[Rfam]
RNA sequence: CGGCAAGAUAUGUGUUGUGGGCCUACGCGCAAGCGCGAAGUCCUCCAACACUCCCCCUUACUCGCCAUUGGCUCGACGGCAUCCUGCUCUGCGAGGCG
Numbered sequence: 001c002g003g004c005a006a007g008a009u010a011u012g013u014g015u016u017g018u019g020g021g022c023c024u025a026c027g028c029g030c031a032a033g034c035g036c037g038a039a040g041u042c043c044u045c046c047a048a049c050a051c052u053c054c055c056c057c058u059u060a061c062u063c064g065c066c067a068u069u070g071g072c073u074c075g076a077c078g079g080c081a082u083c084c085u086g087c088u089c090u091g092c093g094a095g096g097c098g
Base pairs, nucleotide, nucleotide: 002088003087004086005085007083008082009081012051013050014049015048016047017046019044020043021042024039026037027036028035029034056079057078064072065071066070
The record is a 98-nucleotide RNA from Chelativorans petroleitrophicus, which matches "traJ-II RNA" in Rfam. The family's RNA type in Rfam is cis-regulatory element. The family's consensus secondary structure is taken from published work. NCBI's taxonomy places the organism under Bacteria, Pseudomonadati, Pseudomonadota, Alphaproteobacteria, Chelativorans. Rfam 15.1 lists 174 matches to the family in 172 species.